RNA sequence: GUGCGUUAGCGAUUGCAGCGAAAAUCCUUUCUCGGAGCGCAGCGUAGAGAAAGAUUGUAGCGGAAAGCGCGGCCGCGC
Numbered sequence: 001g002u003g004c005g006u007u008a009g010c011g012a013u014u015g016c017a018g019c020g021a022a023a024a025u026c027c028u029u030u031c032u033c034g035g036a037g038c039g040c041a042g043c044g045u046a047g048a049g050a051a052a053g054a055u056u057g058u059a060g061c062g063g064a065a066a067g068c069g070c071g072g073c074c075g076c077g078c
Base pairs, nucleotide, nucleotide: 009070010069011068013066014065018061019060023056024055025054026053029051030050031049032048033047
Annotation
The family of this 78-nucleotide RNA from Flavobacterium caeni is "Flavo-1 RNA". The base pairs follow the family's consensus structure, which is taken from published work.